L31-Actinobacteria ribosomal protein leader: a 57-nucleotide sequence from Mycolicibacterium sp. P9-64. The organism belongs to Mycobacterium (subgen. Mycolicibacterium), within Bacteria. The family's RNA type in Rfam is cis-regulatory leader.
RNA sequence: UCGGUUCCGGUUCACGCUCGAAGACCUUUGGGUCAGGGCUUGGGCGACCCGGCGGCC
Dot-bracket structure: ..(((.((((....((((((.((...............))))))))..))))..)))